Shown here is a 75-nucleotide RNA sequence from Kitasatospora acidiphila, a member of the family "ASpks TB sRNA". A reference for the family is Arnvig and Young (2009), "Identification of small RNAs in Mycobacterium tuberculosis", Mol Microbiol. The family's RNA type in Rfam is antisense RNA.
[Rfam]
RNA sequence: CUUCAACGACCCCAACCACAAAGGCUGUUCGGCGUCACGAUCCCGGCCGUAGGUCGCCAGCAGCGCCUGCGCCUC
Numbered sequence: 001c002u003u004c005a006a007c008g009a010c011c012c013c014a015a016c017c018a019c020a021a022a023g024g025c026u027g028u029u030c031g032g033c034g035u036c037a038c039g040a041u042c043c044c045g046g047c048c049g050u051a052g053g054u055c056g057c058c059a060g061c062a063g064c065g066c067c068u069g070c071g072c073c074u075c
Stems, first nucleotide, its partner, number of pairs: 014026001016024002032070002038065002043060001045058001047056001049054001